[Rfam]
This 106-nucleotide sequence from Martelella mediterranea belongs to the Rfam family "Alphaproteobacterial ar15". The match comes from Rfam's covariance-model search (88 bits).
RNA sequence: AGCUGAUGCGUUCGAUACGACUUCUGAGUCGUAUUGCAGCAGCUGUUCCCCUCUGGAGGUUUUUACCUUCACACUUACAAGGGCCCCGUUUUGGAGGCCCUUUUUU
Numbered sequence: 001a002g003c004u005g006a007u008g009c010g011u012u013c014g015a016u017a018c019g020a021c022u023u024c025u026g027a028g029u030c031g032u033a034u035u036g037c038a039g040c041a042g043c044u045g046u047u048c049c050c051c052u053c054u055g056g057a058g059g060u061u062u063u064u065a066c067c068u069u070c071a072c073a074c075u076u077a078c079a080a081g082g083g084c085c086c087c088g089u090u091u092u093g094g095a096g097g098c099c100c101u102u103u104u105u106u
Base pairs, nucleotide, nucleotide: 001044002043003042004041005040007038008037009036015034016033017032018031054071055070056069057068058067059066060065080101081100082099083098084097085096086094087093088092

By type it is a small RNA.